[Rfam]
RNA sequence: UUUACGUGGUAGUAACGUUUCCAAGUGAAAAGCAUCGCUGGAAGGGCUUCAUGCCACGUUAGAUAAACGUCCUGCUCCCCAGCUUACUACCAAUUUUGCGAUUAAAGGGAGCUGCAAUGAUAAUGUUCGUGGCGAUUGAAGAGAUUAGAUCGUGACUGCUGAUAGUUGCAUACAUUU
Numbered sequence: 001u002u003u004a005c006g007u008g009g010u011a012g013u014a015a016c017g018u019u020u021c022c023a024a025g026u027g028a029a030a031a032g033c034a035u036c037g038c039u040g041g042a043a044g045g046g047c048u049u050c051a052u053g054c055c056a057c058g059u060u061a062g063a064u065a066a067a068c069g070u071c072c073u074g075c076u077c078c079c080c081a082g083c084u085u086a087c088u089a090c091c092a093a094u095u096u097u098g099c100g101a102u103u104a105a106a107g108g109g110a111g112c113u114g115c116a117a118u119g120a121u122a123a124u125g126u127u128c129g130u131g132g133c134g135a136u137u138g139a140a141g142a143g144a145u146u147a148g149a150u151c152g153u154g155a156c157u158g159c160u161g162a163u164a165g166u167u168g169c170a171u172a173c174a175u176u177u
Base pairs, nucleotide, nucleotide: 004059005058006057007056008055009054010053012050014048016046018044019043020042021041022040023039025038027036028035074112075111076110077109078108079107084104086102088100090098113170114169115168116167117166118165125159126158129156130155132153133152134151135150136149137148
A member of the RNA family "Drosophila small cajal body-specific RNA PsiU2-55" from Drosophila kikkawai, 177 nucleotides long.
Rfam 15.1 lists 18 matches to the family in 17 species.
The match comes from Rfam's covariance-model search (137 bits).
Pairs were carried over by alignment from the consensus structure, which was predicted with RNAfold.
Rfam links the family to the GO terms RNA processing, nucleolus and Cajal body.
The organism belongs to Sophophora, within Eukaryota.
It is annotated as a small Cajal body RNA.
A reference for the family is Deryusheva and Gall (2013), "Novel small Cajal-body-specific RNAs identified in Drosophila: probing guide RNA function", RNA.